RNA sequence: CACACGUAAGGCAUGGGAUCGGUCGGGAGAAAUCCGAACGGUUCCGCCCGGUGGCGUCCUCGAAGAGGAUGCUGGUCGCCUUGCGGAGGUUCAACCGGAAAAGGAGAAAAAGG
Number, nucleotide and partner (000 for none) at each position: 001c088002a000003c086004a000005c085006g084007u083008a082009a081010g080011g079012c000013a000014u000015g000016g045017g044018a000019u000020c000021g000022g000023u000024c036025g035026g000027g034028a000029g000030a000031a000032a000033u000034c027035c025036g024037a000038a000039c000040g000041g000042u000043u000044c017045c016046g000047c000048c000049c000050g000051g000052u000053g073054g072055c071056g070057u069058c068059c067060u066061c065062g000063a000064a000065g061066a060067g059068g058069a057070u056071g055072c054073u053074g000075g000076u000077c000078g000079c011080c010081u009082u008083g007084c006085g005086g003087a000088g001089g000090u000091u000092c000093a000094a000095c000096c000097g000098g000099a000100a000101a000102a000103g000104g000105a000106g000107a000108a000109a000110a000111a000112g000113g000
This 113-nucleotide RNA from Neorhizobium sp. SOG26 belongs to the Rfam family "rpsB sRNA". The match comes from Rfam's covariance-model search (44 bits). For this family Rfam cites "Identification of candidate structured RNAs in the marine organism 'Candidatus Pelagibacter ubique'" (Meyer et al., BMC Genomics, 2009). Rfam classes the family as a small RNA.